Source information
Rfam assigns this 104-nucleotide sequence from Prunus armeniaca to the family "MIR6274 microRNA precursor family". NCBI's taxonomy places the organism under Eukaryota, Mesangiospermae, eudicotyledons, rosids, Prunus. Rfam 15.1 lists 342 matches to the family in 8 species.

RNA sequence: GGAUAUCAUUGUUUUGCUAUCCCGGCCAGUAACAUGAUGACAUGUAGAAAAAUUAUUCCACGUGUCAUUGUGUUAUUGGCCUGGGCUAGCAAAAAGUAUUAUCC
Numbered sequence: 001g002g003a004u005a006u007c008a009u010u011g012u013u014u015u016g017c018u019a020u021c022c023c024g025g026c027c028a029g030u031a032a033c034a035u036g037a038u039g040a041c042a043u044g045u046a047g048a049a050a051a052a053u054u055a056u057u058c059c060a061c062g063u064g065u066c067a068u069u070g071u072g073u074u075a076u077u078g079g080c081c082u083g084g085g086c087u088a089g090c091a092a093a094a095a096g097u098a099u100u101a102u103c104c
Stems, first nucleotide, its partner, number of pairs: 002103004012094008021084002024081022047058003